Overview
This 74-nucleotide RNA sequence from Otus sunia belongs to the Rfam family "Small nucleolar RNA SNORD19". Clan: SNORD19 clan. The family's RNA type in Rfam is C/D-box small nucleolar RNA.

[Rfam]
RNA sequence: GAGAAAUGAGGAUACAGACUAUAUCUUACUUCUGUAGUGAAGACUUCAGAUCCAACUCUGAUCUCACGCUGGAG
Numbered sequence: 001g002a003g004a005a006a007u008g009a010g011g012a013u014a015c016a017g018a019c020u021a022u023a024u025c026u027u028a029c030u031u032c033u034g035u036a037g038u039g040a041a042g043a044c045u046u047c048a049g050a051u052c053c054a055a056c057u058c059u060g061a062u063c064u065c066a067c068g069c070u071g072g073a074g
Base pairs, nucleotide, nucleotide: 001065002064003063004062
The base pairs follow the family's consensus structure. On this family, see Huttenhofer et al., EMBO J 2001: "RNomics: an experimental approach that identifies 201 candidates for novel, small, non-messenger RNAs in mouse".